Small nucleolar RNA snoR31/Z110/Z27: a 98-nucleotide sequence from Vitis rotundifolia.
Rfam's curators write: This family contains several related snoRNAs including R31, Z27 and Z110.
Rfam classes the family as a C/D-box small nucleolar RNA.
[Rfam]
RNA sequence: AUCAUCAAGUGAUGAAAUUAGUAUAAAUCUUAGGACACCUUCCUACACAACUUGCAAUGGUUGUGGAUGAGAAUGCUAUUACUUAUUCUGAUGAUGAU
Dot-bracket structure: (((((((....................................................................................)))))))